[Rfam]
Selenocysteine transfer RNA: a 90-nucleotide sequence from Denitratisoma oestradiolicum.
The family's consensus secondary structure is taken from published work.
RNA sequence: GGAAGAGCGAUGUCCCCGGUGGGGCACCUGGUCUUCAAAACCAGCGCGGUGCCGAUGAGGCGCCUGGUGGGUUCGACUCCUACCUCUUCC
Numbered sequence: 001g002g003a004a005g006a007g008c009g010a011u012g013u014c015c016c017c018g019g020u021g022g023g024g025c026a027c028c029u030g031g032u033c034u035u036c037a038a039a040a041c042c043a044g045c046g047c048g049g050u051g052c053c054g055a056u057g058a059g060g061c062g063c064c065u066g067g068u069g070g071g072u073u074c075g076a077c078u079c080c081u082a083c084c085u086c087u088u089c090c
Base pairs, nucleotide, nucleotide: 001090002089003088004087005086006085007084009083011026012025013024014023015022016021028044029043030042031041032040048064049063050062051061068082069081070080071079